RNA: L31-Actinobacteria ribosomal protein leader
Organism: Pseudonocardia benzenivorans
RNA sequence: GUGGCUCCGGUUCACCCCUGUCGGCGAUCCCGUCGGCACAGCAGGGGACCCGGCGGCC
Numbered sequence: 001g002u003g004g005c006u007c008c009g010g011u012u013c014a015c016c017c018c019u020g021u022c023g024g025c026g027a028u029c030c031c032g033u034c035g036g037c038a039c040a041g042c043a044g045g046g047g048a049c050c051c052g053g054c055g056g057c058c
Stems, first nucleotide, its partner, number of pairs: 003058003007053004015047007